[Rfam]
A member of the RNA family "mir-87 microRNA precursor family" from Diploscapter pachys, 85 nucleotides long.
RNA sequence: CUCAGCUUCGCCUGACUUUUGCUCAACCUCGGUAAGAAAUCAGUUGAUUCUGAUUCAGGUGAGCAAAGCUCAGGUGUGGCGGAAU
Dot-bracket structure: .((.(((.(((((((.((((.((((.(((...........................))))))).)))).))))))).))).))..
About this RNA
The source organism's lineage runs through Eukaryota, Bilateria, Protostomia, Rhabditida and Diploscapter. A reference for the family is Stark et al. (2007), "Systematic discovery and characterization of fly microRNAs using 12 Drosophila genomes", Genome Res. Its family is annotated with RISC complex and miRNA-mediated post-transcriptional gene silencing in the Gene Ontology.